[Rfam]
RNA sequence: GUAUGACGUGAUGUUAUCAUCUUUCGGGACUGACUUGUAGUGGAGAGAAUUACUUGACUGAUCAUAC
Number, nucleotide and partner (000 for none) at each position: 001g067002u066003a065004u064005g063006a062007c000008g000009u000010g000011a000012u000013g000014u000015u000016a000017u000018c000019a000020u000021c000022u000023u000024u000025c000026g000027g000028g000029a000030c000031u000032g000033a000034c000035u000036u000037g000038u000039a000040g000041u000042g000043g000044a000045g000046a000047g000048a000049a000050u000051u000052a000053c000054u000055u000056g000057a000058c000059u000060g000061a000062u006063c005064a004065u003066a002067c001
Small nucleolar RNA SNORD2: a 67-nucleotide RNA from Triplophysa tibetana. Its family is annotated with nucleolus and RNA processing in the Gene Ontology. NCBI's taxonomy places the organism under Eukaryota, Metazoa, Vertebrata, Actinopterygii, Triplophysa. It scores 64 bits against the family's covariance model.